[Rfam]
RNA sequence: GGUCAAGAGCACCAGCGCCAAGCCCCGGCUCGCUGGUCGGCAACCCUCGCUACGCGGUGGGGUGCCCCGGGUGACGACCGGGCCGUGUUCGAACGAACCCGGCAAGCGCGUACG
Number, nucleotide and partner (000 for none) at each position: 001g079002g078003u077004c076005a000006a000007g000008a000009g038010c000011a037012c036013c035014a034015g033016c032017g000018c000019c000020a000021a030022g029023c000024c000025c000026c000027g000028g000029c022030u021031c000032g016033c015034u014035g013036g012037u011038c009039g066040g065041c064042a000043a000044c062045c061046c060047u000048c057049g000050c000051u000052a000053c000054g000055c000056g000057g048058u000059g000060g046061g045062g044063u000064g041065c040066c039067c000068c000069g000070g000071g000072u000073g000074a000075c000076g004077a003078c002079c001080g000081g000082g103083c102084c101085g100086u000087g098088u097089u096090c095091g000092a000093a000094c000095g090096a089097a088098c087099c000100c085101g084102g083103c082104a000105a000106g000107c000108g000109c000110g000111u000112a000113c000114g000